RNA sequence: UUAUAAGCAAAAAACCACUUUUUAGGUUCAUUGAAAAAGUAAUGUAUCUAGCCUAUAUUAUUGACCAAAUACAUUACUUUUUCAAUGAACCUAAAAAGUGGUUUUUUUGCUUAUAA
Numbered sequence: 001u002u003a004u005a006a007g008c009a010a011a012a013a014a015c016c017a018c019u020u021u022u023u024a025g026g027u028u029c030a031u032u033g034a035a036a037a038a039g040u041a042a043u044g045u046a047u048c049u050a051g052c053c054u055a056u057a058u059u060a061u062u063g064a065c066c067a068a069a070u071a072c073a074u075u076a077c078u079u080u081u082u083c084a085a086u087g088a089a090c091c092u093a094a095a096a097a098g099u100g101g102u103u104u105u106u107u108u109g110c111u112u113a114u115a116a
Base pairs, nucleotide, nucleotide: 002115003114004113005112006111007110009107010106011105012104013103015101016100017099018098019097020096021095022094023093024092025091027089028088029087030086031085032084033083034082035081036080037079038078039077040076041075042074043073044072049067051065
About this RNA:
This 116-nucleotide RNA from Trifolium pratense belongs to the Rfam family "MIR2593 microRNA precursor family". The organism belongs to Trifolium, within Eukaryota. Gene Ontology terms of the family: miRNA-mediated post-transcriptional gene silencing and RISC complex.